[Rfam]
RNA sequence: CAACAACUGAAAGGAGGUGACCCAGUGUCUCAUAGUUUCAACCGCCCAGCGGUGACCGUGACCUGGACCUCCGUGAACGGGGUCCGCGCCUAAGCCUUAAGGCAGGUCGCGAACCGCGCAGCGGUCCGACUAUGGAAAGGCCGCUCCAGCAAUGGGGCGGCCUU
Numbered sequence: 001c002a003a004c005a006a007c008u009g010a011a012a013g014g015a016g017g018u019g020a021c022c023c024a025g026u027g028u029c030u031c032a033u034a035g036u037u038u039c040a041a042c043c044g045c046c047c048a049g050c051g052g053u054g055a056c057c058g059u060g061a062c063c064u065g066g067a068c069c070u071c072c073g074u075g076a077a078c079g080g081g082g083u084c085c086g087c088g089c090c091u092a093a094g095c096c097u098u099a100a101g102g103c104a105g106g107u108c109g110c111g112a113a114c115c116g117c118g119c120a121g122c123g124g125u126c127c128g129a130c131u132a133u134g135g136a137a138a139g140g141c142c143g144c145u146c147c148a149g150c151a152a153u154g155g156g157g158c159g160g161c162c163u164u
Stems, first nucleotide, its partner, number of pairs: 016023002031134007045065001050060002067083005085111002089106003094103003114124004137164012
The family of this 164-nucleotide RNA from Phenylobacterium kunshanense is "caulobacter sRNA CC2171". The match comes from Rfam's covariance-model search (97 bits). For this family Rfam cites "Small non-coding RNAs in Caulobacter crescentus" (Landt et al., Mol Microbiol, 2008).